[Rfam]
RNA: tRNA
RNA sequence: AAUGGGUUAAUUCAGCGGUAGAAUACCCGGCUCUUCACCCGGGCAGACGUAGGUUCGAGCCCUACACCCGUUU
Number, nucleotide and partner (000 for none) at each position: 001a072002a071003u070004g069005g068006g067007u066008u000009a000010a024011u023012u022013c021014a000015g000016c000017g000018g000019u000020a000021g013022a012023a011024u010025a000026c043027c042028c041029g040030g039031c000032u000033c000034u000035u000036c000037a000038c000039c030040c029041g028042g027043g026044c000045a000046g000047a000048c000049g065050u064051a063052g062053g061054u000055u000056c000057g000058a000059g000060c000061c053062c052063u051064a050065c049066a007067c006068c005069c004070g003071u002072u001073u000